[Rfam]
RNA sequence: UCUUCAUUUCACACACUCUCUCACCACUCAACCGGGCGAGAGAGCGUGCGAAACGAAGAGA
Numbered sequence: 001u002c003u004u005c006a007u008u009u010c011a012c013a014c015a016c017u018c019u020c021u022c023a024c025c026a027c028u029c030a031a032c033c034g035g036g037c038g039a040g041a042g043a044g045c046g047u048g049c050g051a052a053a054c055g056a057a058g059a060g061a
Stems, first nucleotide, its partner, number of pairs: 001059005007053001010050001012048003016044002019041004
mir-8364 microRNA precursor family: a 61-nucleotide RNA from Pristionchus pacificus.
Rfam links the family to the GO terms RISC complex and miRNA-mediated post-transcriptional gene silencing.
NCBI's taxonomy places the organism under Eukaryota, Metazoa, Protostomia, Chromadorea, Pristionchus.